This 85-nucleotide RNA sequence from Hordeum vulgare belongs to the Rfam family "mir-877 microRNA precursor family". The organism belongs to Hordeum vulgare, within Eukaryota. The family's consensus secondary structure was predicted with RNAalifold. The literature on the family includes a 2006 paper in Genome Res by Berezikov et al., "Many novel mammalian microRNA candidates identified by extensive cloning and RAKE analysis".

[Rfam]
RNA sequence: GAGGAGGAGAAGGAGGAGGAGGAGGAGGAGGAGGAGGAGAAGGCCAGGGGCCUUCUCCUCCUCCUCCUCCUCCUCCUCCUCCUCC
Numbered sequence: 001g002a003g004g005a006g007g008a009g010a011a012g013g014a015g016g017a018g019g020a021g022g023a024g025g026a027g028g029a030g031g032a033g034g035a036g037g038a039g040a041a042g043g044c045c046a047g048g049g050g051c052c053u054u055c056u057c058c059u060c061c062u063c064c065u066c067c068u069c070c071u072c073c074u075c076c077u078c079c080u081c082c083u084c085c
Stems, first nucleotide, its partner, number of pairs: 004081006013075002016072001018070010029059001037057007044049001